[Rfam]
RNA sequence: UAAGUUUAAGGGCAAACCAUGUGAAAACUUGGGACGCAAAGCUAUAGGGGCUAAAAUAGCCAUUGCUAUUAUGCCAGCCAGCUGCCGUU
Dot-bracket structure: ...........((...(((.((....)).)))...))..((((...(((((....((((......))))...)))..))))))......